This 108-nucleotide RNA sequence from Plutella xylostella belongs to the Rfam family "mir-8517 microRNA precursor family".
[Rfam]
RNA sequence: UUACAAAACAUUGUAGCUGUUGGACUGUUUUGUCCCUAAUUAUGAAAGAACAAUUUGUUCUUUGACAGAAAGGGACAAAACAGUUUAAUAGGUAAAACGUUCUGUAAC
Numbered sequence: 001u002u003a004c005a006a007a008a009c010a011u012u013g014u015a016g017c018u019g020u021u022g023g024a025c026u027g028u029u030u031u032g033u034c035c036c037u038a039a040u041u042a043u044g045a046a047a048g049a050a051c052a053a054u055u056u057g058u059u060c061u062u063u064g065a066c067a068g069a070a071a072g073g074g075a076c077a078a079a080a081c082a083g084u085u086u087a088a089u090a091g092g093u094a095a096a097a098c099g100u101u102c103u104g105u106a107a108c
Base pairs, nucleotide, nucleotide: 001107002106003105004104005103011097012096014094015093017091018090019089020088021087022086023085024084025083026082027081028080029069030068031067032066033065034064049059050058051057052056
It scores 84 bits against the family's covariance model. NCBI's taxonomy places the organism under Eukaryota, Bilateria, Eumetabola, Amphiesmenoptera, Plutella.